[Rfam]
RNA sequence: UUUGAGCCAAGAAAUAAAAAAUGAAAGUAAUCUUAACAAAUAAUUGGUGGUGGUUAUCUCAAAACGAAAACGUCGUGAGAUAGUUCCUGUUAUUAUGUUAAGUAAACAUAUCAAAGGCUUGUC
Numbered sequence: 001u002u003u004g005a006g007c008c009a010a011g012a013a014a015u016a017a018a019a020a021a022u023g024a025a026a027g028u029a030a031u032c033u034u035a036a037c038a039a040a041u042a043a044u045u046g047g048u049g050g051u052g053g054u055u056a057u058c059u060c061a062a063a064a065c066g067a068a069a070a071c072g073u074c075g076u077g078a079g080a081u082a083g084u085u086c087c088u089g090u091u092a093u094u095a096u097g098u099u100a101a102g103u104a105a106a107c108a109u110a111u112c113a114a115a116g117g118c119u120u121g122u123c
Base pairs, nucleotide, nucleotide: 036098037097038096040093041092042091043090044089046087047086049084053081054080058079064073065072066071

The record is a 123-nucleotide RNA from Aquimarina algiphila, which matches "Bacteroidete tryptophan peptide leader RNA" in Rfam. By type it is a cis-regulatory leader. The organism belongs to Aquimarina, within Bacteria. A search with the family's covariance model found it, with a score of 64 bits.